[Rfam]
RNA sequence: GGUCUGUGGUGGUAUCGGCAUGUAUUAUCUGAGCAUAAAUCUGAUCAGUUCAGCUCUGGAAUUGCUCUGAGACCUA
Numbered sequence: 001g002g003u004c005u006g007u008g009g010u011g012g013u014a015u016c017g018g019c020a021u022g023u024a025u026u027a028u029c030u031g032a033g034c035a036u037a038a039a040u041c042u043g044a045u046c047a048g049u050u051c052a053g054c055u056c057u058g059g060a061a062u063u064g065c066u067c068u069g070a071g072a073c074c075u076a
Base pairs, nucleotide, nucleotide: 001074002073003072004071

Rfam assigns this 76-nucleotide RNA sequence from Eurypyga helias to the family "Small nucleolar RNA SNORD45". The base pairs follow the family's consensus structure, which was predicted with PFOLD. The family has 11 seed sequences and 1,629 matches in Rfam 15.1. A search with the family's covariance model found it, with a score of 47 bits. The literature on the family includes a 2002 paper in Mol Cell Biol by Galardi et al., "Purified box C/D snoRNPs are able to reproduce site-specific 2'-O-methylation of target RNA in vitro".